[Rfam]
RNA sequence: CACGGGCAGUUUGAGUUGAUUCGCUCUUUUAAAGUAGAGCUUGGGUCAAAUUACUGUCCGAAAAUUAUAGAGAGGAGCUCAUGUAUAGAUUGAAAUUGUUUGGAAAACUUUCAACCACAUAGCUCUUCCCACAGUU
Numbered sequence: 001c002a003c004g005g006g007c008a009g010u011u012u013g014a015g016u017u018g019a020u021u022c023g024c025u026c027u028u029u030u031a032a033a034g035u036a037g038a039g040c041u042u043g044g045g046u047c048a049a050a051u052u053a054c055u056g057u058c059c060g061a062a063a064a065u066u067a068u069a070g071a072g073a074g075g076a077g078c079u080c081a082u083g084u085a086u087a088g089a090u091u092g093a094a095a096u097u098g099u100u101u102g103g104a105a106a107a108c109u110u111u112c113a114a115c116c117a118c119a120u121a122g123c124u125c126u127u128c129c130c131a132c133a134g135u136u
Base pairs, nucleotide, nucleotide: 003060004059005058006057007056008055009054010053016049017048018047019046020045021044022043023040024039025038026037027036072128073127075126076124077123078122